[Rfam]
A member of the RNA family "Group II catalytic intron D1-D4-4" from Mycobacterium lacus, 135 nucleotides long. NCBI's taxonomy places the organism under Bacteria, Bacillati, Actinomycetota, Mycobacteriales, Mycobacterium. The match comes from Rfam's covariance-model search (72 bits). About the family: Group II introns are found in rRNA, tRNA and mRNA of organelles in fungi, plants and protists, and also in mRNA in bacteria. The family has 90 seed sequences and 840 matches in Rfam 15.1.
RNA sequence: UUGCGGGUGAAAGUCCCGUCCCGGUAGGCACCGGAGCGCCGGGUAGCAGGCCCCGGUUCGUCGUUGAGGGGCGGCGGGCUAAGCGGGGUGUCGAAAGCGUCUUUGGAGGGAGCAAGUGCGCGGGCCGUAGUGCCG
Numbered sequence: 001u002u003g004c005g006g007g008u009g010a011a012a013g014u015c016c017c018g019u020c021c022c023g024g025u026a027g028g029c030a031c032c033g034g035a036g037c038g039c040c041g042g043g044u045a046g047c048a049g050g051c052c053c054c055g056g057u058u059c060g061u062c063g064u065u066g067a068g069g070g071g072c073g074g075c076g077g078g079c080u081a082a083g084c085g086g087g088g089u090g091u092c093g094a095a096a097g098c099g100u101c102u103u104u105g106g107a108g109g110g111a112g113c114a115a116g117u118g119c120g121c122g123g124g125c126c127g128u129a130g131u132g133c134c135g
Stems, first nucleotide, its partner, number of pairs: 020043005050089005055080006064071002098109001100107002112128002